[Rfam]
RNA sequence: AAAAAAACAGGGGUUUGUCAGUCAUGUUGGCCGAUAUUUAGUAAACUUGAAGGAUACAAUAAUGUCCAUUGGUAUUUGGUGAACCUUCUUUCUUUUGUUGUGACUGAAGGUUCAGUGAAUCAUGGAAUAUAU
Numbered sequence: 001a002a003a004a005a006a007a008c009a010g011g012g013g014u015u016u017g018u019c020a021g022u023c024a025u026g027u028u029g030g031c032c033g034a035u036a037u038u039u040a041g042u043a044a045a046c047u048u049g050a051a052g053g054a055u056a057c058a059a060u061a062a063u064g065u066c067c068a069u070u071g072g073u074a075u076u077u078g079g080u081g082a083a084c085c086u087u088c089u090u091u092c093u094u095u096u097g098u099u100g101u102g103a104c105u106g107a108a109g110g111u112u113c114a115g116u117g118a119a120u121c122a123u124g125g126a127a128u129a130u131a132u
Stems, first nucleotide, its partner, number of pairs: 005048002011037001014034002017031001065126005071120001073118001080114007